[Rfam]
RNA sequence: GGUUCACAUUGGAGUUGUGUCUUGGAUUUGUUUUCUGUGUCCCUGUUGCACACUCACGUGAUCCGAGA
Numbered sequence: 001g002g003u004u005c006a007c008a009u010u011g012g013a014g015u016u017g018u019g020u021c022u023u024g025g026a027u028u029u030g031u032u033u034u035c036u037g038u039g040u041c042c043c044u045g046u047u048g049c050a051c052a053c054u055c056a057c058g059u060g061a062u063c064c065g066a067g068a
Stems, first nucleotide, its partner, number of pairs: 001064002004061004017051004024042004
A member of the RNA family "Trypanosomatid snoRNA TB9Cs2H1" from Trypanosoma theileri, 68 nucleotides long. On this family, see Liang et al., RNA 2005: "A genome-wide analysis of C/D and H/ACA-like small nucleolar RNAs in Trypanosoma brucei reveals a trypanosome-specific pattern of rRNA modification". Lineage of the source: Eukaryota > Metakinetoplastina > Trypanosomatida > Trypanosomatidae > Trypanosoma. A search with the family's covariance model found it, with a score of 74 bits. The family's RNA type in Rfam is H/ACA-box small nucleolar RNA.